[Rfam]
RNA sequence: UAUAACUGAUAUAUCGAGGAGUGUAAUGACGGAGUAACGCCCCGAAACGCUCCCUUUAAUACUCCGACGUGCAUCGAAAUUGGUAAAAACUAAAUGUACGAAGCUCGGUGAAGUCGGCUGAAAUAUACCGUAAACUAAGCAACAAACGAAAGGUCACCUAGUCCGUGGCUGUAUAUGAUAGGUCGGAAGUCUAUAAA
Numbered sequence: 001u002a003u004a005a006c007u008g009a010u011a012u013a014u015c016g017a018g019g020a021g022u023g024u025a026a027u028g029a030c031g032g033a034g035u036a037a038c039g040c041c042c043c044g045a046a047a048c049g050c051u052c053c054c055u056u057u058a059a060u061a062c063u064c065c066g067a068c069g070u071g072c073a074u075c076g077a078a079a080u081u082g083g084u085a086a087a088a089a090c091u092a093a094a095u096g097u098a099c100g101a102a103g104c105u106c107g108g109u110g111a112a113g114u115c116g117g118c119u120g121a122a123a124u125a126u127a128c129c130g131u132a133a134a135c136u137a138a139g140c141a142a143c144a145a146a147c148g149a150a151a152g153g154u155c156a157c158c159u160a161g162u163c164c165g166u167g168g169c170u171g172u173a174u175a176u177g178a179u180a181g182g183u184c185g186g187a188a189g190u191c192u193a194u195a196a197a
Stems, first nucleotide, its partner, number of pairs: 018053006031043002034040001054189004064108004068100007077091001080088002115185005123176006129148003136144001152170006

Notes:
Shown here is a 197-nucleotide RNA from Epulopiscium sp. Nele67-Bin005, a member of the family "Group II catalytic intron D1-D4-5". Rfam links the family to the GO term Group II intron splicing. Rfam describes the family as follows. Group II introns are found in rRNA, tRNA and mRNA of organelles in fungi, plants and protists, and also in mRNA in bacteria. For this family Rfam cites "The ins and outs of group II introns" (Bonen and Vogel, Trends Genet, 2001).